[Rfam]
RNA sequence: GUAAAGCGGUGUGCGUGGUGUCUGUCUGCGUUUAGCGCUGUCUCCAGCCUGUGUUUUGCAGUCUGUGUCUGCGCUCACACCACACCUGCAGCCAAAAAGCCACUGGAGAUCAUAGUACUGGCCUAGUGACGUCAAUGCGACCUUCUACCACUGGCCAGCCUCCAUUCUCUCCUACAAAA
Numbered sequence: 001g002u003a004a005a006g007c008g009g010u011g012u013g014c015g016u017g018g019u020g021u022c023u024g025u026c027u028g029c030g031u032u033u034a035g036c037g038c039u040g041u042c043u044c045c046a047g048c049c050u051g052u053g054u055u056u057u058g059c060a061g062u063c064u065g066u067g068u069c070u071g072c073g074c075u076c077a078c079a080c081c082a083c084a085c086c087u088g089c090a091g092c093c094a095a096a097a098a099g100c101c102a103c104u105g106g107a108g109a110u111c112a113u114a115g116u117a118c119u120g121g122c123c124u125a126g127u128g129a130c131g132u133c134a135a136u137g138c139g140a141c142c143u144u145c146u147a148c149c150a151c152u153g154g155c156c157a158g159c160c161u162c163c164a165u166u167c168u169c170u171c172c173u174a175c176a177a178a179a
Stems, first nucleotide, its partner, number of pairs: 013089003030080002033077001035075001036073003040069001043067001045065003050060003105172005118158006125152004131142001132140002

A member of the RNA family "Small nucleolar RNA SNORA23" from Bagarius yarrelli, 179 nucleotides long. About the family: The members of this family belong to the H/ACA class of snoRNAs which are thought to guide the sites of modification of uridines to pseudouridines. This family includes human snoRNA ACA23 (SNORA23) and mouse snoMBI-1. It scores 115 bits against the family's covariance model.